[Rfam]
RNA: Actino-pnp RNA
RNA sequence: GCCGGUCCUCGGUAGUGGCUUCCGGAUCCGUCCCGCCGCAUCGGCGGGCUCUCGAUCCGGGCGCUUCGAUCGAAGACCGGC
Numbered sequence: 001g002c003c004g005g006u007c008c009u010c011g012g013u014a015g016u017g018g019c020u021u022c023c024g025g026a027u028c029c030g031u032c033c034c035g036c037c038g039c040a041u042c043g044g045c046g047g048g049c050u051c052u053c054g055a056u057c058c059g060g061g062c063g064c065u066u067c068g069a070u071c072g073a074a075g076a077c078c079g080g081c
Base pairs, nucleotide, nucleotide: 001081002080003079004078005077006076007075009073010072011071012070013069017065018064019063021061022060023059024058025057026056027055028054